[Rfam]
RNA sequence: CUCCCGGGCCGUGACUGGCGCGAAGAGGUGGGCAACCACCGGGGAGCGGUCCAGCACCUCCCUGCCGCGCGCCUGGGCGCCCCCU
Numbered sequence: 001c002u003c004c005c006g007g008g009c010c011g012u013g014a015c016u017g018g019c020g021c022g023a024a025g026a027g028g029u030g031g032g033c034a035a036c037c038a039c040c041g042g043g044g045a046g047c048g049g050u051c052c053a054g055c056a057c058c059u060c061c062c063u064g065c066c067g068c069g070c071g072c073c074u075g076g077g078c079g080c081c082c083c084c085u
Base pairs, nucleotide, nucleotide: 004054006052007051008050009049010048011047012046015043016042017073018072019071020070021069028039029038030037031036063079064078065077066076

Rfam assigns this 85-nucleotide RNA from Blastococcus sp. CCUG 61487 to the family "ZMP/ZTP riboswitch aptamer (pfl RNA motif)". The base pairs follow the family's consensus structure, which is taken from published work.